small nucleolar RNA snoR143: a 166-nucleotide RNA from Elaeis guineensis. Lineage of the source: Eukaryota > Spermatophyta > Magnoliopsida > Liliopsida > Elaeis. The family's consensus secondary structure was predicted with RNAalifold. Rfam 15.1 lists 660 matches to the family in 212 species.
[Rfam]
RNA sequence: CUGCAUUUGUUGGAUUAUAAGGCUACACAGAUUUAAAUAGUGGUGCCUUGAACAACAGUGCAUAGAUAAAAAGCCGUUCAGGCGGCAGCGGCCAGACAACCGUGGGGAUGGAUCCACAGAUGACUGAUCUUUGAUGCCAGUUAUCUACUAAUUCCAUCGCAUAUCC
Numbered sequence: 001c002u003g004c005a006u007u008u009g010u011u012g013g014a015u016u017a018u019a020a021g022g023c024u025a026c027a028c029a030g031a032u033u034u035a036a037a038u039a040g041u042g043g044u045g046c047c048u049u050g051a052a053c054a055a056c057a058g059u060g061c062a063u064a065g066a067u068a069a070a071a072a073g074c075c076g077u078u079c080a081g082g083c084g085g086c087a088g089c090g091g092c093c094a095g096a097c098a099a100c101c102g103u104g105g106g107g108a109u110g111g112a113u114c115c116a117c118a119g120a121u122g123a124c125u126g127a128u129c130u131u132u133g134a135u136g137c138c139a140g141u142u143a144u145c146u147a148c149u150a151a152u153u154c155c156a157u158c159g160c161a162u163a164u165c166c
Stems, first nucleotide, its partner, number of pairs: 002062005008054003016051001018050006026042003030038001105160001107158006122142004126137001
The family's RNA type in Rfam is H/ACA-box small nucleolar RNA.